[Rfam]
RNA sequence: CUCAAGGAAGUGCUUUGUCAACUUGGACGGAAAAUGUGUCCUUGAGGGCACGUUUUGUUUCCAUGUGGACAAAGCGCUUCCUUGAGA
Numbered sequence: 001c002u003c004a005a006g007g008a009a010g011u012g013c014u015u016u017g018u019c020a021a022c023u024u025g026g027a028c029g030g031a032a033a034a035u036g037u038g039u040c041c042u043u044g045a046g047g048g049c050a051c052g053u054u055u056u057g058u059u060u061c062c063a064u065g066u067g068g069a070c071a072a073a074g075c076g077c078u079u080c081c082u083u084g085a086g087a
Stems, first nucleotide, its partner, number of pairs: 001086019021066001024063004029058001031056008040047002
The record is an 87-nucleotide sequence from Gossypium gossypioides, which matches "MIR7486 microRNA precursor family" in Rfam. A search with the family's covariance model found it, with a score of 77 bits. The source organism's lineage runs through Eukaryota, Tracheophyta, eudicotyledons, Gunneridae and Gossypium. The family's consensus secondary structure was predicted with RNAalifold.